[Rfam]
RNA sequence: AUGGCAGUGAUGAUUGGCGCAGGGGUACGGACCUCAGCUGGAUCAUGGGAGCUGAGUGCAGGCUGAGUUGUGGCGCAGCCGGCGCGUGGCCAGCUCACCAAAACCAGCUCUGCACGAGACUUUGCCAGAAGCUGAGCCAU
Numbered sequence: 001a002u003g004g005c006a007g008u009g010a011u012g013a014u015u016g017g018c019g020c021a022g023g024g025g026u027a028c029g030g031a032c033c034u035c036a037g038c039u040g041g042a043u044c045a046u047g048g049g050a051g052c053u054g055a056g057u058g059c060a061g062g063c064u065g066a067g068u069u070g071u072g073g074c075g076c077a078g079c080c081g082g083c084g085c086g087u088g089g090c091c092a093g094c095u096c097a098c099c100a101a102a103a104c105c106a107g108c109u110c111u112g113c114a115c116g117a118g119a120c121u122u123u124g125c126c127a128g129a130a131g132c133u134g135a136g137c138c139a140u
Stems, first nucleotide, its partner, number of pairs: 001140005
The family of this 140-nucleotide RNA sequence from Psilopogon haemacephalus is "Small nucleolar RNA SNORD94". The match comes from Rfam's covariance-model search (110 bits). Rfam classes the family as a C/D-box small nucleolar RNA. NCBI's taxonomy places the organism under Eukaryota, Metazoa, Euteleostomi, Coraciimorphae, Psilopogon. The family has 21 seed sequences and 802 matches in Rfam 15.1. Pairs were carried over by alignment from the consensus structure, which was predicted with RNAalifold.